This 127-nucleotide RNA sequence from Eucalyptus grandis belongs to the Rfam family "Small nucleolar RNA snoR74". Pairs were carried over by alignment from the consensus structure, which was predicted with WAR. A reference for the family is Marker et al. (2002), "Experimental RNomics: identification of 140 candidates for small non-messenger RNAs in the plant Arabidopsis thaliana", Curr Biol. Rfam links the family to the GO terms nucleolus and RNA processing.
RNA sequence: GAAAAAGCAGGGAUCUGUUGCCUGUGUGAAUGGAUCUCUCGUAGACUUCAGGGAAAUAUAUUCACUGUUAUUGGGUGAACCUCUGUUAUCUGUCGUGGCUGAAGGUUCAAAAAAUGGUGUCACAUCA
Number, nucleotide and partner (000 for none) at each position: 001g000002a000003a000004a000005a048006a047007g046008c000009a000010g000011g037012g036013a000014u034015c033016u032017g031018u000019u000020g000021c000022c000023u000024g000025u000026g000027u000028g000029a000030a000031u017032g016033g015034a014035u000036c012037u011038c000039u000040c000041g000042u000043a000044g000045a000046c007047u006048u005049c000050a000051g000052g000053g000054a000055a000056a000057u000058a000059u000060a000061u000062u000063c119064a118065c117066u116067g115068u114069u113070a000071u000072u000073g000074g000075g000076u109077g108078a107079a106080c105081c104082u103083c000084u000085g000086u000087u000088a000089u000090c000091u000092g000093u000094c000095g000096u000097g000098g000099c000100u000101g000102a000103a082104g081105g080106u079107u078108c077109a076110a000111a000112a000113a069114a068115u067116g066117g065118u064119g063120u000121c000122a000123c000124a000125u000126c000127a000